[Rfam]
Flavo-1 RNA: a 76-nucleotide sequence from Flavobacterium agrisoli.
RNA sequence: UUUUAGCCCCGAUGGGAACGGUAUCCUUUUGUGCUGGGGUUCAGCAUAAAAGAUAUAGUGGACAUCGGGAACCCAA
Numbered sequence: 001u002u003u004u005a006g007c008c009c010c011g012a013u014g015g016g017a018a019c020g021g022u023a024u025c026c027u028u029u030u031g032u033g034c035u036g037g038g039g040u041u042c043a044g045c046a047u048a049a050a051a052g053a054u055a056u057a058g059u060g061g062a063c064a065u066c067g068g069g070a071a072c073c074c075a076a
Stems, first nucleotide, its partner, number of pairs: 009068003013064002018059002023054003029049008
It scores 68 bits against the family's covariance model.
NCBI's taxonomy places the organism under Bacteria, Bacteroidota, Flavobacteriia, Flavobacteriales, Flavobacterium.